[Rfam]
RNA sequence: UAUAAAGUUGAUUUACUCAUAAACUUUAAAAUAUGUGAGUUAAGGGAUAUUUUUCGAUAAAUUCAAGUCCCGUUUGUCGCUAGUAAUUAUAAAGCGAAGUCUUAUCAGACUAAUUGAUUGAACUUUAUUUUUCGAAUAAUCCCAUUGUCAGGAAUACGCUUCCUAUAUUUGUAAAUUUACUAAAUUUCAGGCGGACUAUCAAUCAUUUAGAUUGCCUCCCAACUCAAC
Numbered sequence: 001u002a003u004a005a006a007g008u009u010g011a012u013u014u015a016c017u018c019a020u021a022a023a024c025u026u027u028a029a030a031a032u033a034u035g036u037g038a039g040u041u042a043a044g045g046g047a048u049a050u051u052u053u054u055c056g057a058u059a060a061a062u063u064c065a066a067g068u069c070c071c072g073u074u075u076g077u078c079g080c081u082a083g084u085a086a087u088u089a090u091a092a093a094g095c096g097a098a099g100u101c102u103u104a105u106c107a108g109a110c111u112a113a114u115u116g117a118u119u120g121a122a123c124u125u126u127a128u129u130u131u132u133c134g135a136a137u138a139a140u141c142c143c144a145u146u147g148u149c150a151g152g153a154a155u156a157c158g159c160u161u162c163c164u165a166u167a168u169u170u171g172u173a174a175a176u177u178u179a180c181u182a183a184a185u186u187u188c189a190g191g192c193g194g195a196c197u198a199u200c201a202a203u204c205a206u207u208u209a210g211a212u213u214g215c216c217u218c219c220c221a222a223c224u225c226a227a228c
Stems, first nucleotide, its partner, number of pairs: 003028007036226006044220004067196004072192005081182006087174006093160004098111005114151005125139006200214005

Background
Cyanobacterial functional RNA 8/9: a 228-nucleotide RNA from Prochlorococcus marinus. The sequence is in the family's curated seed alignment. By type it is a small RNA.